[Rfam]
RNA sequence: AAGCAUAAUAGAGGCGCAGAGAUUAUUAGUAAUCAUAACCUAGCUUGGCAAGCGAAUAAAGUAUGAUGAAAGGAUGAUCUGCCGAAGCAUUAUUUUCCGCCAAUAAAUAAUGUUGGAGUUAAGUUUAAUAGACUUAUCACUCUCACUACCUACCGUAGUGAAGGCGCUAUUAUUUGA
Numbered sequence: 001a002a003g004c005a006u007a008a009u010a011g012a013g014g015c016g017c018a019g020a021g022a023u024u025a026u027u028a029g030u031a032a033u034c035a036u037a038a039c040c041u042a043g044c045u046u047g048g049c050a051a052g053c054g055a056a057u058a059a060a061g062u063a064u065g066a067u068g069a070a071a072g073g074a075u076g077a078u079c080u081g082c083c084g085a086a087g088c089a090u091u092a093u094u095u096u097c098c099g100c101c102a103a104u105a106a107a108u109a110a111u112g113u114u115g116g117a118g119u120u121a122a123g124u125u126u127a128a129u130a131g132a133c134u135u136a137u138c139a140c141u142c143u144c145a146c147u148a149c150c151u152a153c154c155g156u157a158g159u160g161a162a163g164g165c166g167c168u169a170u171u172a173u174u175u176g177a
Base pairs, nucleotide, nucleotide: 006172007171008170009169010168011167016082017081018080019079020078024074032067033066034065035064036063037062086114087113088112089111090110091109092108093107094106095105115141116140118138120136121135122134123133124132125131143161144160145159146158147157148156149155
Shown here is a 177-nucleotide sequence from Vallitalea guaymasensis, a member of the family "Lysine riboswitch aptamer". Its family is annotated with lysine biosynthetic process in the Gene Ontology. It scores 94 bits against the family's covariance model. From the family's description: Riboswitches are metabolite binding domains within certain messenger RNAs that serve as precision sensors for their corresponding targets. Allosteric rearrangement of mRNA structure is mediated by ligand binding, and this results in modulation of gene expression. The base pairs follow the family's consensus structure, which is taken from published work.